terC RNA: a 58-nucleotide RNA sequence from Defluviicoccus vanus. The family's consensus secondary structure is taken from published work. Rfam classes the family as a cis-regulatory element. It scores 61 bits against the family's covariance model.
RNA sequence: AACCGGAUCCGGGCCCCUCUGGUAGCCGAGGCGUCGGCUAUGAUGUCGGAUCCUUACG
Numbered sequence: 001a002a003c004c005g006g007a008u009c010c011g012g013g014c015c016c017c018u019c020u021g022g023u024a025g026c027c028g029a030g031g032c033g034u035c036g037g038c039u040a041u042g043a044u045g046u047c048g049g050a051u052c053c054u055u056a057c058g
Stems, first nucleotide, its partner, number of pairs: 006052007022041008